RNA: Guanidine-I riboswitch aptamer
RNA sequence: AUUUAAGUUUUCUAGGGUUCCGCAGCUUAUAACUGGCAGGUCCGAGAGAAAACACACAGCUAAUUGUGUACACGGAAGGAUAAAAGCCUGGGAGAU
Numbered sequence: 001a002u003u004u005a006a007g008u009u010u011u012c013u014a015g016g017g018u019u020c021c022g023c024a025g026c027u028u029a030u031a032a033c034u035g036g037c038a039g040g041u042c043c044g045a046g047a048g049a050a051a052a053c054a055c056a057c058a059g060c061u062a063a064u065u066g067u068g069u070a071c072a073c074g075g076a077a078g079g080a081u082a083a084a085a086g087c088c089u090g091g092g093a094g095a096u
Base pairs, nucleotide, nucleotide: 007053008052009051010050011049012048015043016042020040021039022037023035024034025033027031054069055068056067057066058065059064071091073094077089078088079087